[Rfam]
RNA: small nucleolar RNA snoR135
Organism: Ziziphus jujuba
RNA sequence: CAGGCAGGGAUUGUGUGUAUCGGCGUUGUGCAGCAAUCAAUGCACUCUGUAUCCGAAAGAGUUCCCUGCGAUAUCAAGUUAAGGGGAAGGUGGGCAGUUGUAUUUUAUCAUAGCCCUUGAAAAUUUCAACAAUCAUCUUCCCCAUAUUU
Numbered sequence: 001c002a003g004g005c006a007g008g009g010a011u012u013g014u015g016u017g018u019a020u021c022g023g024c025g026u027u028g029u030g031c032a033g034c035a036a037u038c039a040a041u042g043c044a045c046u047c048u049g050u051a052u053c054c055g056a057a058a059g060a061g062u063u064c065c066c067u068g069c070g071a072u073a074u075c076a077a078g079u080u081a082a083g084g085g086g087a088a089g090g091u092g093g094g095c096a097g098u099u100g101u102a103u104u105u106u107a108u109c110a111u112a113g114c115c116c117u118u119g120a121a122a123a124u125u126u127c128a129a130c131a132a133u134c135a136u137c138u139u140c141c142c143c144a145u146a147u148u149u
Stems, first nucleotide, its partner, number of pairs: 004069007015045006083143011097130004